[Rfam]
The record is a 61-nucleotide RNA sequence from Geotoga petraea, which matches "Fluoride riboswitch aptamer (crcB RNA motif)" in Rfam.
It scores 60 bits against the family's covariance model.
The source organism's lineage runs through Bacteria, Thermotogota, Thermotogae, Petrotogales and Geotoga.
RNA sequence: AUCAUAAAAGGUGAUGGAGUUCACCUCAACCGCUAUAAAAGCUAAUGACUCCUGUUGGUAA
Numbered sequence: 001a002u003c004a005u006a007a008a009a010g011g012u013g014a015u016g017g018a019g020u021u022c023a024c025c026u027c028a029a030c031c032g033c034u035a036u037a038a039a040a041g042c043u044a045a046u047g048a049c050u051c052c053u054g055u056u057g058g059u060a061a
Stems, first nucleotide, its partner, number of pairs: 010025004016052006032042003